Arthropod 7SK RNA: a 301-nucleotide RNA from Pomacea canaliculata. Lineage of the source: Eukaryota > Bilateria > Mollusca > Architaenioglossa > Pomacea.
RNA sequence: GGAGCAUUGUGUCCUAGGUGACACAUCUGAACAUCGAUCGCUGAGAAAACAUUACGGCUGAUCUGUCCAGAUUCGUUGUCCCAAUCAGCACGUUUGCGUUUACUGGGGUUUCCCGUGCCUGCGUCGCACGGUAGAGACUCUCUGUAACAGCUCACUGCUUUCAAACAGUUCCAGAGCUUAAAGGGUAUAAAUAGAUCUUCUGGCUUCCUAGGCAAAUUCUAUAAUUGGGAAGUUGGGGAACUCGAAAUCUUUCUGAAUGCUCCAUAUCGGCACUGCACGUGGCAGCUUGCCAUUUUUUUUG
Numbered sequence: 001g002g003a004g005c006a007u008u009g010u011g012u013c014c015u016a017g018g019u020g021a022c023a024c025a026u027c028u029g030a031a032c033a034u035c036g037a038u039c040g041c042u043g044a045g046a047a048a049a050c051a052u053u054a055c056g057g058c059u060g061a062u063c064u065g066u067c068c069a070g071a072u073u074c075g076u077u078g079u080c081c082c083a084a085u086c087a088g089c090a091c092g093u094u095u096g097c098g099u100u101u102a103c104u105g106g107g108g109u110u111u112c113c114c115g116u117g118c119c120u121g122c123g124u125c126g127c128a129c130g131g132u133a134g135a136g137a138c139u140c141u142c143u144g145u146a147a148c149a150g151c152u153c154a155c156u157g158c159u160u161u162c163a164a165a166c167a168g169u170u171c172c173a174g175a176g177c178u179u180a181a182a183g184g185g186u187a188u189a190a191a192u193a194g195a196u197c198u199u200c201u202g203g204c205u206u207c208c209u210a211g212g213c214a215a216a217u218u219c220u221a222u223a224a225u226u227g228g229g230a231a232g233u234u235g236g237g238g239a240a241c242u243c244g245a246a247a248u249c250u251u252u253c254u255g256a257a258u259g260c261u262c263c264a265u266a267u268c269g270g271c272a273c274u275g276c277a278c279g280u281g282g283c284a285g286c287u288u289g290c291c292a293u294u295u296u297u298u299u300u301g
Stems, first nucleotide, its partner, number of pairs: 001263008017080003027070003031066003036063004040058004046052001269291003273285004
Dot-bracket structure: ((((((((........(((.......(((.(((..((((((((..(.....)..)))).))))))).))).......)))...............................................................................................................................................................................)))))))).....(((.((((.....))))...)))..........